This 135-nucleotide RNA sequence from Malurus elegans belongs to the Rfam family "Small nucleolar RNA SNORA33". Rfam links the family to the GO terms nucleolus and RNA processing. The source organism's lineage runs through Eukaryota, Chordata, Craniata, Neognathae and Malurus. Rfam's curators write: ACA33 is a member of the H/ACA class of snoRNA that guide the sites of modification of uridines to pseudouridines. By type it is an H/ACA-box small nucleolar RNA.

[Rfam]
RNA sequence: AUGCCAGUUCAAUGCAUCCACUCAACUUGAAAAUGUUUUGUGGAACAUAUUUCACAAUAACACUGGCAAAGUAAAGCCACAGUACGAGCCUUGAAGACUUUGUGGUCUCUGAGGUCCCAAGAGAUGGCUACAUAU
Numbered sequence: 001a002u003g004c005c006a007g008u009u010c011a012a013u014g015c016a017u018c019c020a021c022u023c024a025a026c027u028u029g030a031a032a033a034u035g036u037u038u039u040g041u042g043g044a045a046c047a048u049a050u051u052u053c054a055c056a057a058u059a060a061c062a063c064u065g066g067c068a069a070a071g072u073a074a075a076g077c078c079a080c081a082g083u084a085c086g087a088g089c090c091u092u093g094a095a096g097a098c099u100u101u102g103u104g105g106u107c108u109c110u111g112a113g114g115u116c117c118c119a120a121g122a123g124a125u126g127g128c129u130a131c132a133u134a135u
Base pairs, nucleotide, nucleotide: 003067004066005065006064007063017044018043019042020041021040076128077127078126079125088115089114090113091112092111093110096107097106098105